[Rfam]
RNA sequence: AUUGCAUAGCAAGCGCCGGAACCCGGAAAUUCCAGUGUCAGGUGAAAUAAUGGUGACGCCACUUAAUUAACCUGCCAGUUUCCGGGUUGACGAGGGGGGAGUUCAUCGAAGUUUUCGGCGGAUGCUCCCCGGUUGGCCACGACCGUUAACGAUACCACAAAACCGGCCGGCAACGGCCGGGACAAAGGGUGUCCGGUGGCAAAG
Numbered sequence: 001a002u003u004g005c006a007u008a009g010c011a012a013g014c015g016c017c018g019g020a021a022c023c024c025g026g027a028a029a030u031u032c033c034a035g036u037g038u039c040a041g042g043u044g045a046a047a048u049a050a051u052g053g054u055g056a057c058g059c060c061a062c063u064u065a066a067u068u069a070a071c072c073u074g075c076c077a078g079u080u081u082c083c084g085g086g087u088u089g090a091c092g093a094g095g096g097g098g099g100a101g102u103u104c105a106u107c108g109a110a111g112u113u114u115u116c117g118g119c120g121g122a123u124g125c126u127c128c129c130c131g132g133u134u135g136g137c138c139a140c141g142a143c144c145g146u147u148a149a150c151g152a153u154a155c156c157a158c159a160a161a162a163c164c165g166g167c168c169g170g171c172a173a174c175g176g177c178c179g180g181g182a183c184a185a186a187g188g189g190u191g192u193c194c195g196g197u198g199g200c201a202a203a204g
Base pairs, nucleotide, nucleotide: 020088021087022086023085024084025083026082027081029079030078031077097129098128099127100126101125106118107117108116109115130145131144132143133142134141135140151193152192153191154190155189156188163180164179165178166177167176168175169174
RNA: glmS glucosamine-6-phosphate activated ribozyme aptamer